[Rfam]
RNA: S15-Flavobacteria ribosomal protein leader
Organism: Flavobacterium subsaxonicum
RNA sequence: UAACUUUGCACCCAAAUUAGGAUAAACCUAAUCUACAUAAUAAUUAUUUAAAGAAUAUUAGCAUG
Numbered sequence: 001u002a003a004c005u006u007u008g009c010a011c012c013c014a015a016a017u018u019a020g021g022a023u024a025a026a027c028c029u030a031a032u033c034u035a036c037a038u039a040a041u042a043a044u045u046a047u048u049u050a051a052a053g054a055a056u057a058u059u060a061g062c063a064u065g
Base pairs, nucleotide, nucleotide: 016032017031018030019029020028